[Rfam]
RNA: Small nucleolar RNA SNORA70
RNA sequence: CUGCAGCCAAUUAAGCCGACCAGGUUCCUUUCCUCAUAGGAGUCUGGUGUGCAAUGGUUGCAAACAGCAUCCUCCUUGCUAGUGUAUGCAGCCUGCUGAAUGUGCAGGCUGCCCAAAGGGACCUUGGAGACAGUC
Numbered sequence: 001c002u003g004c005a006g007c008c009a010a011u012u013a014a015g016c017c018g019a020c021c022a023g024g025u026u027c028c029u030u031u032c033c034u035c036a037u038a039g040g041a042g043u044c045u046g047g048u049g050u051g052c053a054a055u056g057g058u059u060g061c062a063a064a065c066a067g068c069a070u071c072c073u074c075c076u077u078g079c080u081a082g083u084g085u086a087u088g089c090a091g092c093c094u095g096c097u098g099a100a101u102g103u104g105c106a107g108g109c110u111g112c113c114c115a116a117a118g119g120g121a122c123c124u125u126g127g128a129g130a131c132a133g134u135c
Base pairs, nucleotide, nucleotide: 002053003052004051005050019048020047021046022045025042026041027040028039078123080121089111090110091109092108093107094106